[Rfam]
RNA sequence: UGCUAGCCGGGCACUGUGUUGCAAGCGCCGGAAGCUUAGUCGCAGGG
Dot-bracket structure: ......[[.[[[.(((((......]]..]]].........)))))..

This 47-nucleotide sequence from Umbravirus papaveri belongs to the Rfam family "Exoribonuclease-resistant RNA (xrRNA) plant-infecting virus (class 3)".
From the family's description: Exoribonuclease-resistant RNA (xrRNA) plant-infecting virus (class 3) is a ncRNA that was reported in Plant viruses.
On this family, see Gezelle et al., bioRxiv [Preprint] 2024: "The pseudoknot structure of a viral RNA reveals a conserved mechanism for programmed exoribonuclease resistance".
Lineage of the source: Viruses > Riboviria > Orthornavirae > Tolivirales > Umbravirus papaveri.
It is one of the family's seed sequences.
The family's consensus secondary structure is taken from published work.
Gene Ontology term of the family: viral RNA genome replication.